A member of the RNA family "Small nucleolar RNA R66" from Asparagus officinalis, 75 nucleotides long. Rfam describes the family as follows. snoR66 is a C/D box small nucleolar RNA, which acts as a methylation guide for 18S ribosomal RNA in plants. snoR66 has been alternatively named snoZ269 in rice.
[Rfam]
RNA sequence: UUCGAUGAUGACAUGAAAUAUUUGAGACUUGUGUCUAUCUUGUAAUGAGAACCACAAGCAGUACUUUCUGAGGAU
Numbered sequence: 001u002u003c004g005a006u007g008a009u010g011a012c013a014u015g016a017a018a019u020a021u022u023u024g025a026g027a028c029u030u031g032u033g034u035c036u037a038u039c040u041u042g043u044a045a046u047g048a049g050a051a052c053c054a055c056a057a058g059c060a061g062u063a064c065u066u067u068c069u070g071a072g073g074a075u
Stems, first nucleotide, its partner, number of pairs: 001074003032042002
It scores 45 bits against the family's covariance model. NCBI's taxonomy places the organism under Eukaryota, Embryophyta, Euphyllophyta, Spermatophyta, Asparagus. Rfam classes the family as a C/D-box small nucleolar RNA. Gene Ontology terms of the family: nucleolus and RNA processing.